A member of the RNA family "Plastid-psbA-3 3UTR RNA" from Coptis chinensis, 58 nucleotides long. Its Rfam clan is "Plastid-psbA 3UTR RNA clan". On this family, see Richter et al., Plant Commun 2023: "Retrograde signaling in plants: A critical review focusing on the GUN pathway and beyond". By type it is a cis-regulatory element. Rfam's curators write: Plastid psbA-3 is a non-coding RNA (ncRNA) present in plastids. It was identified in inverted repeat sequences in the 3 prime untranslate region (3UTR) of photosystem II quinone-binding protein (psbA).
RNA sequence: GCAAGAGUAAUAACAAAAUUCUUGACAAAACAAGAAUUUUGUUAUUACUCCUGCAUUU
Numbered sequence: 001g002c003a004a005g006a007g008u009a010a011u012a013a014c015a016a017a018a019u020u021c022u023u024g025a026c027a028a029a030a031c032a033a034g035a036a037u038u039u040u041g042u043u044a045u046u047a048c049u050c051c052u053g054c055a056u057u058u
Base pairs, nucleotide, nucleotide: 001054002053003052005050006049007048008047009046010045011044012043013042014041019036020035021034022033023032024031